[Rfam]
The record is a 93-nucleotide sequence from Lichenibacterium ramalinae, which matches "Selenocysteine transfer RNA" in Rfam. The family's consensus secondary structure is taken from published work. Rfam links the family to the GO term triplet codon-amino acid adaptor activity. It scores 70 bits against the family's covariance model. Rfam 15.1 lists 4,211 matches to the family in 3,344 species. Lineage of the source: Bacteria > Pseudomonadota > Alphaproteobacteria > Lichenihabitantaceae > Lichenibacterium.
RNA sequence: GGAAGAGAAACGCUCCCCGGUGGGACGUCCGGACUUCAAAUCCGGGAAGGGCCGCGAGCCGGUCCUUGGUGGGUUCGACCCCCACUCUCUUCC
Numbered sequence: 001g002g003a004a005g006a007g008a009a010a011c012g013c014u015c016c017c018c019g020g021u022g023g024g025a026c027g028u029c030c031g032g033a034c035u036u037c038a039a040a041u042c043c044g045g046g047a048a049g050g051g052c053c054g055c056g057a058g059c060c061g062g063u064c065c066u067u068g069g070u071g072g073g074u075u076c077g078a079c080c081c082c083c084a085c086u087c088u089c090u091u092c093c
Stems, first nucleotide, its partner, number of pairs: 001093008014025004028046006048066005070084004